[Rfam]
RNA sequence: ACCACUGAGCCAUCUCUCCAGCCCCAUACAAUGCUUUUUAAAGUCUUUCAAAUCGGGCUGGAGAGAUGGCUCAGCGGU
Numbered sequence: 001a002c003c004a005c006u007g008a009g010c011c012a013u014c015u016c017u018c019c020a021g022c023c024c025c026a027u028a029c030a031a032u033g034c035u036u037u038u039u040a041a042a043g044u045c046u047u048u049c050a051a052a053u054c055g056g057g058c059u060g061g062a063g064a065g066a067u068g069g070c071u072c073a074g075c076g077g078u
Base pairs, nucleotide, nucleotide: 002077003076005074006073007072008071009070010069011068012067013066014065015064016063017062018061019060020059021058022057023056024055
Shown here is a 78-nucleotide RNA sequence from Rattus norvegicus, a member of the family "mir-3473 microRNA precursor family". The organism belongs to Rattus, within Eukaryota. It scores 77 bits against the family's covariance model. Pairs were carried over by alignment from the consensus structure, which was predicted with RNAalifold.